[Rfam]
RNA sequence: CUCUUAUCAAGAGAGGUGGAGGGAUGUGCCCGAUGAAGCCCGGCAACCGGCAAAGCAAUUGCUUUGAAAAGGUGCCAAUUCACACAAAGCGGAUUGCUUUGGGAGAUGAGAG
Numbered sequence: 001c002u003c004u005u006a007u008c009a010a011g012a013g014a015g016g017u018g019g020a021g022g023g024a025u026g027u028g029c030c031c032g033a034u035g036a037a038g039c040c041c042g043g044c045a046a047c048c049g050g051c052a053a054a055g056c057a058a059u060u061g062c063u064u065u066g067a068a069a070a071g072g073u074g075c076c077a078a079u080u081c082a083c084a085c086a087a088a089g090c091g092g093a094u095u096g097c098u099u100u101g102g103g104a105g106a107u108g109a110g111a112g
Stems, first nucleotide, its partner, number of pairs: 001112008013041001015040003021031003025084004042076004047072002051066004080104001085101006
Shown here is a 112-nucleotide sequence from Peribacillus loiseleuriae, a member of the family "SAM riboswitch aptamer (S box leader)". A reference for the family is Daldrop and Lilley (2013), "The plasticity of a structural motif in RNA: structural polymorphism of a kink turn as a function of its environment", RNA. Gene Ontology term of the family: regulation of gene expression.